[Rfam]
RNA sequence: GAGGUUCUAGCUUCAACAGUGAUUGAACGGAACGU
Numbered sequence: 001g002a003g004g005u006u007c008u009a010g011c012u013u014c015a016a017c018a019g020u021g022a023u024u025g026a027a028c029g030g031a032a033c034g035u
Stems, first nucleotide, its partner, number of pairs: 002035001004033005010028001012027005017021001
A member of the RNA family "Iron response element I" from Triplophysa tibetana, 35 nucleotides long. The source organism's lineage runs through Eukaryota, Euteleostomi, Clupeocephala, Cypriniformes and Triplophysa. On this family, see Hentze et al., Science 1987: "Identification of the iron-responsive element for the translational regulation of human ferritin mRNA". Gene Ontology term of the family: response to iron ion.